About this RNA:
Rfam assigns this 96-nucleotide sequence from Raphanus sativus to the family "Small nucleolar RNA snoR109". Taxonomically the source falls in Raphanus (Eukaryota, Embryophyta, Mesangiospermae, Brassicaceae). Pairs were carried over by alignment from the consensus structure, which was predicted with WAR. Gene Ontology terms of the family: nucleolus and RNA processing.
RNA sequence: AAGCAAAGAUCGAAUCAGAAGCUAUCUGGCCGGUGGUCGCGAGAGGGAUUCAAAUCUCUCCGGUCGAUUCAUCUGCUUACCGAGUUUCUUACACUU
Numbered sequence: 001a002a003g004c005a006a007a008g009a010u011c012g013a014a015u016c017a018g019a020a021g022c023u024a025u026c027u028g029g030c031c032g033g034u035g036g037u038c039g040c041g042a043g044a045g046g047g048a049u050u051c052a053a054a055u056c057u058c059u060c061c062g063g064u065c066g067a068u069u070c071a072u073c074u075g076c077u078u079a080c081c082g083a084g085u086u087u088c089u090u091a092c093a094c095u096u
Stems, first nucleotide, its partner, number of pairs: 017089007028077003032073004036068004